The family of this 91-nucleotide sequence from Streptomyces morookaense is "che1 RNA". Taxonomically the source falls in Streptomyces (Bacteria, Bacillati, Actinomycetota, Actinomycetes). It is annotated as a small RNA.

RNA sequence: GGGACAGGGGGGUCUCCGCCACAACGGCGGUGCCUGUCCCAUGGGUUGCGCGAAGGCGUGGCCGUUGGUUGUCGCUCGGGGGUGAUCGCCG
Number, nucleotide and partner (000 for none) at each position: 001g040002g039003g038004a037005c036006a035007g034008g033009g000010g000011g000012g000013u000014c032015u000016c030017c029018g028019c027020c026021a000022c000023a000024a000025c000026g020027g019028c018029g017030g016031u000032g014033c008034c007035u006036g005037u004038c003039c002040c001041a000042u000043g000044g063045g062046u061047u060048g059049c058050g057051c056052g000053a000054a000055g000056g051057c050058g049059u048060g047061g046062c045063c044064g000065u000066u000067g000068g000069u000070u000071g000072u000073c000074g000075c000076u000077c000078g000079g000080g000081g000082g000083u000084g000085a000086u000087c000088g000089c000090c000091g000